[Rfam]
RNA: ZMP/ZTP riboswitch aptamer (pfl RNA motif)
Organism: Humidesulfovibrio mexicanus
RNA sequence: CAGGGGCCGCGUGACUGGCGAAACCGUGGAGCCAACCACGAGGAAGCGCGGGUCUCCCCACCAGCCGCUCGCCUGGGCUGCGCCG
Numbered sequence: 001c002a003g004g005g006g007c008c009g010c011g012u013g014a015c016u017g018g019c020g021a022a023a024c025c026g027u028g029g030a031g032c033c034a035a036c037c038a039c040g041a042g043g044a045a046g047c048g049c050g051g052g053u054c055u056c057c058c059c060a061c062c063a064g065c066c067g068c069u070c071g072c073c074u075g076g077g078c079u080g081c082g083c084c085g
Stems, first nucleotide, its partner, number of pairs: 003055003007051006015043002017073005026039004062080005